RNA: L4-Archaeoglobi ribosomal protein leades
RNA sequence: CUGAUCGAGACGCUGGGCCAACGCCAGUGCAGCGCGCCCGGUUUCCGGGAUAAAUCUUCCCGGGAGCGUCAGAGAGUCAG
Numbered sequence: 001c002u003g004a005u006c007g008a009g010a011c012g013c014u015g016g017g018c019c020a021a022c023g024c025c026a027g028u029g030c031a032g033c034g035c036g037c038c039c040g041g042u043u044u045c046c047g048g049g050a051u052a053a054a055u056c057u058u059c060c061c062g063g064g065a066g067c068g069u070c071a072g073a074g075a076g077u078c079a080g
Stems, first nucleotide, its partner, number of pairs: 001080005009070005014040004022034003042065004047060004